[Rfam]
RNA sequence: UGAUGUUUAUGAAGGUCUGUGCUGAAAGCAGGAAAACUGCUAGCACUGACUGGAUGUCCCCAUCA
Numbered sequence: 001u002g003a004u005g006u007u008u009a010u011g012a013a014g015g016u017c018u019g020u021g022c023u024g025a026a027a028g029c030a031g032g033a034a035a036a037c038u039g040c041u042a043g044c045a046c047u048g049a050c051u052g053g054a055u056g057u058c059c060c061c062a063u064c065a
Stems, first nucleotide, its partner, number of pairs: 001065004014051004019046005029039003
Shown here is a 65-nucleotide sequence from Gymnodraco acuticeps, a member of the family "Selenocysteine insertion sequence 1". By type it is a cis-regulatory element. About the family: The incorporation of selenocysteine into a protein sequence is directed by an in-frame UGA codon (usually a stop codon) within the coding region of the mRNA. Selenoprotein mRNAs contain a conserved secondary structure in the 3' UTR that is required for the distinction of UGA stop from UGA selenocysteine. The organism belongs to Gymnodraco, within Eukaryota. The match comes from Rfam's covariance-model search (35 bits). The literature on the family includes a 1996 paper in RNA by Walczak et al., "A novel RNA structural motif in the selenocysteine insertion element of eukaryotic selenoprotein mRNAs".